[Rfam]
RNA sequence: CAUAAUCACUAGGGGGGCCGAAUAAGGUCGGCUGAGAUAAAGGACCCAAGAAUCCUUUGACCCUUAACCUGAUCUGGGUAAUGCCAGCGUAGGGAAGGUGGAUAAUAACGAUA
Numbered sequence: 001c002a003u004a005a006u007c008a009c010u011a012g013g014g015g016g017g018c019c020g021a022a023u024a025a026g027g028u029c030g031g032c033u034g035a036g037a038u039a040a041a042g043g044a045c046c047c048a049a050g051a052a053u054c055c056u057u058u059g060a061c062c063c064u065u066a067a068c069c070u071g072a073u074c075u076g077g078g079u080a081a082u083g084c085c086a087g088c089g090u091a092g093g094g095a096a097g098g099u100g101g102a103u104a105a106u107a108a109c110g111a112u113a
Stems, first nucleotide, its partner, number of pairs: 006101005011064004016058001017032005039057002042054002068093004074087004
A member of the RNA family "TPP riboswitch aptamer (THI element)" from Desulfitobacterium hafniense, 113 nucleotides long. The base pairs follow the family's consensus structure, which is taken from published work. The match comes from Rfam's covariance-model search (73 bits).